[Rfam]
RNA sequence: CACCAAAACUCUGGAGAGACCGGCCAGUGCCGGCGCCGAAGGGGCACGAAGCGCGCAGAUGCGUACUUCCAAACUCUCAGGCAAAAGGACAGAGGGGCACCC
Numbered sequence: 001c002a003c004c005a006a007a008a009c010u011c012u013g014g015a016g017a018g019a020c021c022g023g024c025c026a027g028u029g030c031c032g033g034c035g036c037c038g039a040a041g042g043g044g045c046a047c048g049a050a051g052c053g054c055g056c057a058g059a060u061g062c063g064u065a066c067u068u069c070c071a072a073a074c075u076c077u078c079a080g081g082c083a084a085a086a087g088g089a090c091a092g093a094g095g096g097g098c099a100c101c102c
Stems, first nucleotide, its partner, number of pairs: 009094005020033004035082003038078002042076003048069004